[Rfam]
A member of the RNA family "mir-148/mir-152 microRNA precursor family" from Scleropages formosus, 74 nucleotides long.
A search with the family's covariance model found it, with a score of 75 bits.
A reference for the family is Chen et al. (2005), "The developmental miRNA profiles of zebrafish as determined by small RNA cloning", Genes Dev.
Taxonomically the source falls in Scleropages (Eukaryota, Chordata, Teleostomi, Osteoglossidae).
RNA sequence: CCAGGCCCAAGUUCUGUGAUACACUUCGACUCUGAGUCCGGGCCAGUCAGUGCAUAACAGAACUUUGGUUUGGG
Numbered sequence: 001c002c003a004g005g006c007c008c009a010a011g012u013u014c015u016g017u018g019a020u021a022c023a024c025u026u027c028g029a030c031u032c033u034g035a036g037u038c039c040g041g042g043c044c045a046g047u048c049a050g051u052g053c054a055u056a057a058c059a060g061a062a063c064u065u066u067g068g069u070u071u072g073g074g
Stems, first nucleotide, its partner, number of pairs: 004070004009065008022052004028048004